Rfam assigns this 299-nucleotide RNA sequence from Gymnorhina tibicen to the family "Metazoan signal recognition particle RNA". Rfam describes the family as follows. The signal recognition particle (SRP) is a universally conserved ribonucleoprotein. Rfam classes the family as a non-coding RNA gene. Pairs were carried over by alignment from the consensus structure, which is taken from published work. It scores 145 bits against the family's covariance model.

[Rfam]
RNA sequence: GCCGGGCGCGGUGGCGCGCGCCUGUAGUCCCAGCUGCCGGGGAGGCUGAGCCCGACGGAUCGCUUGAGCCCAGGAGUUCUGGGCUGCCGUGCGCUGUGCCGAGCGGGCGUCCAAGCUAAGGCCGCCAUCAAUAUGGUGACCCGCGGGGAGCUGCGGGACACCAGGUUGACUAAGGAGGGGUGAACCGGCCCAGGUCGGAGACGGAGCAGGUCAAAGCUCCCGUGGCGGUCAGUCCAGACGUGGGACAUCACCCUGGCCCAGCCCGAGAGCAUCCGGAGCGACCUGGAGAGCUCGGACAG
Numbered sequence: 001g002c003c004g005g006g007c008g009c010g011g012u013g014g015c016g017c018g019c020g021c022c023u024g025u026a027g028u029c030c031c032a033g034c035u036g037c038c039g040g041g042g043a044g045g046c047u048g049a050g051c052c053c054g055a056c057g058g059a060u061c062g063c064u065u066g067a068g069c070c071c072a073g074g075a076g077u078u079c080u081g082g083g084c085u086g087c088c089g090u091g092c093g094c095u096g097u098g099c100c101g102a103g104c105g106g107g108c109g110u111c112c113a114a115g116c117u118a119a120g121g122c123c124g125c126c127a128u129c130a131a132u133a134u135g136g137u138g139a140c141c142c143g144c145g146g147g148g149a150g151c152u153g154c155g156g157g158a159c160a161c162c163a164g165g166u167u168g169a170c171u172a173a174g175g176a177g178g179g180g181u182g183a184a185c186c187g188g189c190c191c192a193g194g195u196c197g198g199a200g201a202c203g204g205a206g207c208a209g210g211u212c213a214a215a216g217c218u219c220c221c222g223u224g225g226c227g228g229u230c231a232g233u234c235c236a237g238a239c240g241u242g243g244g245a246c247a248u249c250a251c252c253c254u255g256g257c258c259c260a261g262c263c264c265g266a267g268a269g270c271a272u273c274c275g276g277a278g279c280g281a282c283c284u285g286g287a288g289a290g291c292u293c294g295g296a297c298a299g
Base pairs, nucleotide, nucleotide: 001046002045003044004023005022006021007020008019009018010017028043029042030041050297052295053294054293055292057291060289061288063286064285068279069278071276073274074273080271081270084267091263093262094261095260096259098257099256105253106252107251109249111244112243116237117236118233120230121229122228123227124226125225126224127223128222129168130167131166132165134163135162136161137160138159140157141156142155143154144153145152146151170174177220178219179218180217181216187212188211189210190209195204196203197202
Dot-bracket structure: ((((((((((......)))))))....(((..........))))))...(.((((.(..((.((...((.(.((.....((..(......(.((((.((.....(((.(.((...(((.(((((((((((((.(((((.(((((((....))))))).))))).)))).(...)..(((((.....((((....(((....)))....))))...))))).)))))))))..)..)).....))....).)))..)).)))))...)..)).)).).)).....)).)).))))).)..